[Rfam]
The family of this 121-nucleotide sequence from Rhinopithecus roxellana is "Mitochondrial DNA control region secondary structure A". The literature on the family includes a 2008 paper in Mol Biol Evol by Pereira et al., "Evidence for variable selective pressures at a large secondary structure of the human mitochondrial DNA control region". The family's RNA type in Rfam is antisense RNA. The family's consensus secondary structure is taken from published work.
RNA sequence: CUUUUUCACGUGUGAGUUUCCUUUCAUUUGAUUAGAAAAGAGGCUAACGGUCUUAUAGCCCAAAAGAUCUCUUACCAUAUGUAAUUCGUGCAUUACUGCUAGCCAACACGAAUAUUACAUA
Numbered sequence: 001c002u003u004u005u006u007c008a009c010g011u012g013u014g015a016g017u018u019u020c021c022u023u024u025c026a027u028u029u030g031a032u033u034a035g036a037a038a039a040g041a042g043g044c045u046a047a048c049g050g051u052c053u054u055a056u057a058g059c060c061c062a063a064a065a066g067a068u069c070u071c072u073u074a075c076c077a078u079a080u081g082u083a084a085u086u087c088g089u090g091c092a093u094u095a096c097u098g099c100u101a102g103c104c105a106a107c108a109c110g111a112a113u114a115u116u117a118c119a120u121a
Base pairs, nucleotide, nucleotide: 005112006111007110010107011106012104016099017098022036023035024034026032027031038073040071041070042069043068079093080092081091082090083089